About this RNA: Rfam assigns this 78-nucleotide RNA from Clupea harengus to the family "mir-9/mir-79 microRNA precursor family". The family's consensus secondary structure was predicted with RNAalifold. A search with the family's covariance model found it, with a score of 77 bits. The literature on the family includes a 2001 paper in Science by Lau et al., "An abundant class of tiny RNAs with probable regulatory roles in Caenorhabditis elegans".
RNA sequence: UGGUUUCUAUCUUUGGUUUUCUAGCUGUAUGAGUGUUAAGAACCUUUCAUAAAGCUAGACAACCGAAAGUAGGAAUGA
Numbered sequence: 001u002g003g004u005u006u007c008u009a010u011c012u013u014u015g016g017u018u019u020u021c022u023a024g025c026u027g028u029a030u031g032a033g034u035g036u037u038a039a040g041a042a043c044c045u046u047u048c049a050u051a052a053a054g055c056u057a058g059a060c061a062a063c064c065g066a067a068a069g070u071a072g073g074a075a076u077g078a
Base pairs, nucleotide, nucleotide: 001078003076004075005074007072008071009070010069012067013066014065015064016063017062018061020059021058022057023056024055025054026053028051029050030049031048032047033046